[Rfam]
RNA sequence: ACAUCAUCACCAUCAUCCUGAUUAGUCUUUCGGGAGGAUACGCCUCGCUCUGGAAGACGAAAAACACUUCUUCCAGUGGUCAGCAAGAAUAAAGAAUUCAAGACCCUUGGAAGUAAAAUUCCAAGGGUUUUUUUC
Numbered sequence: 001a002c003a004u005c006a007u008c009a010c011c012a013u014c015a016u017c018c019u020g021a022u023u024a025g026u027c028u029u030u031c032g033g034g035a036g037g038a039u040a041c042g043c044c045u046c047g048c049u050c051u052g053g054a055a056g057a058c059g060a061a062a063a064a065c066a067c068u069u070c071u072u073c074c075a076g077u078g079g080u081c082a083g084c085a086a087g088a089a090u091a092a093a094g095a096a097u098u099c100a101a102g103a104c105c106c107u108u109g110g111a112a113g114u115a116a117a118a119u120u121c122c123a124a125g126g127g128u129u130u131u132u133u134u135c
Base pairs, nucleotide, nucleotide: 010047012039013038014037017034018033019032020031021030050076051075052074053073054072055071056070057069100131101130102129103128104127105126106125107124108123109122110121111120112119
Histidine operon leader: a 135-nucleotide sequence from Photobacterium jeanii. From the family's description: At least 6 amino acid operons are known to be regulated by attenuation. In each a leader sequence of 150-200 bp is found upstream of the first gene in the operon. This leader sequence can assume two different secondary structures known as the terminator and the anti-terminator structure. The family's consensus secondary structure is taken from published work. The match comes from Rfam's covariance-model search (78 bits).